[Rfam]
RNA sequence: AAUUAAAUAAAUCUCCGAGCAUUUCAACCUGUCAAAUUCAAUUUGUGGUUGCUGUGCCGAUAGGGUUUGAUUGGAAACAGUCAAGCCUCCUGAUGGAAAGGAGAAUAUCAUGUGCAAAA
Numbered sequence: 001a002a003u004u005a006a007a008u009a010a011a012u013c014u015c016c017g018a019g020c021a022u023u024u025c026a027a028c029c030u031g032u033c034a035a036a037u038u039c040a041a042u043u044u045g046u047g048g049u050u051g052c053u054g055u056g057c058c059g060a061u062a063g064g065g066u067u068u069g070a071u072u073g074g075a076a077a078c079a080g081u082c083a084a085g086c087c088u089c090c091u092g093a094u095g096g097a098a099a100g101g102a103g104a105a106u107a108u109c110a111u112g113u114g115c116a117a118a119a
Base pairs, nucleotide, nucleotide: 004112012104013103014102015101016100019057020056021055022054025051026050027049028048029047034043035042063088064087065086066085067084068083069082070081071080072079073078089096090095
RNA: Molybdenum/Tungsten riboswitch aptamer (Moco RNA motif)
Organism: Geosporobacter ferrireducens